[Rfam]
RNA sequence: UGCUGCGGUGCCGGGAACGGUCUUUCCCGAGGAACACAAAGGUGAAAUGACCCGGCCAAGCCCCACCCCACCCGCUCCCGGCGACGCACUCACUCGCGCGAGUGAACAUCACCGACUCGGCUGGAUUCGUGGGCGGUUGGCUGCCCUACGCUCGGCGCAACACAACAGCAGACAUGCGACGGCCCUCGCCGGGACGCCAAUCCCAGUGCGAGGGCCUGACCACCGAGGAAGUAGGAGCUUCCCG
Numbered sequence: 001u002g003c004u005g006c007g008g009u010g011c012c013g014g015g016a017a018c019g020g021u022c023u024u025u026c027c028c029g030a031g032g033a034a035c036a037c038a039a040a041g042g043u044g045a046a047a048u049g050a051c052c053c054g055g056c057c058a059a060g061c062c063c064c065a066c067c068c069c070a071c072c073c074g075c076u077c078c079c080g081g082c083g084a085c086g087c088a089c090u091c092a093c094u095c096g097c098g099c100g101a102g103u104g105a106a107c108a109u110c111a112c113c114g115a116c117u118c119g120g121c122u123g124g125a126u127u128c129g130u131g132g133g134c135g136g137u138u139g140g141c142u143g144c145c146c147u148a149c150g151c152u153c154g155g156c157g158c159a160a161c162a163c164a165a166c167a168g169c170a171g172a173c174a175u176g177c178g179a180c181g182g183c184c185c186u187c188g189c190c191g192g193g194a195c196g197c198c199a200a201u202c203c204c205a206g207u208g209c210g211a212g213g214g215c216c217u218g219a220c221c222a223c224c225g226a227g228g229a230a231g232u233a234g235g236a237g238c239u240u241c242c243c244g
Stems, first nucleotide, its partner, number of pairs: 007224004016076001018074002090105006120156005181216005187210003191204004227242005

Background
A member of the RNA family "Streptomyces sRNA 4677" from Streptomyces sp. M41(2017), 244 nucleotides long. The source organism's lineage runs through Bacteria, Bacillati, Actinomycetota, Actinomycetes and Streptomyces. Rfam's curators write: Located in the intergenic region between anti-sigma factor SCO4677 gene and a putative regulatory protein gene SCO4676. scr4677 expression requires the SCO4677 activity and scr4677 sRNA itself seem to affect the levels of the SCO4676-associated transcripts. The match comes from Rfam's covariance-model search (211 bits). Rfam 15.1 lists 563 matches to the family in 285 species.